[Rfam]
Nucleotides: 074
Stems, first nucleotide, its partner, number of pairs: 003074001005072002008069001010026005039068003043065006050058001
Number, partner (000 for none) and nucleotide at each position: 001000a002000u003074g004000c005072a006071u007000c008069c009000a010026u011025u012024a013023g014022g015000a016000a017000u018000u019000g020000a021000a022014c023013c024012u025011a026010a027000a028000a029000u030000u031000u032000a033000c034000c035000a036000a037000u038000u039068a040067u041066g042000a043065g044064u045063u046062g047061g048060g049000c050058g051000c052000u053000u054000u055000a056000a057000c058050c059000a060048u061047u062046u063045a064044g065043c066041c067040a068039u069008g070000a071006a072005u073000a074003c

The family of this 74-nucleotide RNA from Papaver nudicaule is "Plastid-ycf2 5UTR RNA". About the family: Plastid ycf2 is a non-coding RNA (ncRNA) recognised in plastids. It was found in the prime untranslated region (5UTR) of ycf2 genes, it presents a tRNA-like motif which suggests it can be involved in mRNA maturation, particularly involved in defining the precise 5' end of the transcript. The match comes from Rfam's covariance-model search (78 bits).